[Rfam]
RNA sequence: GUGCCGUGAUGAGGUUCCACUUCAGGUCCGUGUUUCUGAAUCCUGAUUUUUGAAUGGAAGUCCUGAGCGU
Numbered sequence: 001g002u003g004c005c006g007u008g009a010u011g012a013g014g015u016u017c018c019a020c021u022u023c024a025g026g027u028c029c030g031u032g033u034u035u036c037u038g039a040a041u042c043c044u045g046a047u048u049u050u051u052g053a054a055u056g057g058a059a060g061u062c063c064u065g066a067g068c069g070u
Stems, first nucleotide, its partner, number of pairs: 001070004
A member of the RNA family "Small nucleolar RNA SNORD18" from Salvelinus namaycush, 70 nucleotides long.
The family's RNA type in Rfam is C/D-box small nucleolar RNA.
The source organism's lineage runs through Eukaryota, Eumetazoa, Teleostei, Salmonidae and Salvelinus.
Its family is annotated with nucleolus and RNA processing in the Gene Ontology.
Rfam 15.1 lists 2,622 matches to the family in 960 species.
It scores 56 bits against the family's covariance model.